[Rfam]
RNA sequence: CCCAGGCCUUCGGCCUGGGCUAAGAUGGGUCGCGCCUUUGGCGCU
Numbered sequence: 001c002c003c004a005g006g007c008c009u010u011c012g013g014c015c016u017g018g019g020c021u022a023a024g025a026u027g028g029g030u031c032g033c034g035c036c037u038u039u040g041g042c043g044c045u
Stems, first nucleotide, its partner, number of pairs: 001019008032044005
RNA: Acido-Lenti-1 RNA
Organism: Terriglobus roseus